[Rfam]
RNA sequence: CUUCACCGAACCCAACCACAACGGGUCACCGGAACGAUCCUUACCGUAAGUGGCCAGCAGCGCCUGCGCCUC
Dot-bracket structure: .............(.((.....)).)...(....((...((..(((....)))..))...))...)......
RNA: ASpks TB sRNA